[Rfam]
RNA sequence: UUUUAUGCGUGAGGGAUUGAAGUGAAAAUCCUUUAUCCCCUUUUCAAGGAUAAAGAUUGCAACAAAAAGCCCGACCCUGA
Numbered sequence: 001u002u003u004u005a006u007g008c009g010u011g012a013g014g015g016a017u018u019g020a021a022g023u024g025a026a027a028a029u030c031c032u033u034u035a036u037c038c039c040c041u042u043u044u045c046a047a048g049g050a051u052a053a054a055g056a057u058u059g060c061a062a063c064a065a066a067a068a069g070c071c072c073g074a075c076c077c078u079g080a
Stems, first nucleotide, its partner, number of pairs: 013072003017068002022063002027058004033053006
This 80-nucleotide RNA from Pseudopedobacter sp. belongs to the Rfam family "Flavo-1 RNA". The match comes from Rfam's covariance-model search (60 bits). Rfam 15.1 lists 7,497 matches to the family in 411 species. It is annotated as a small RNA.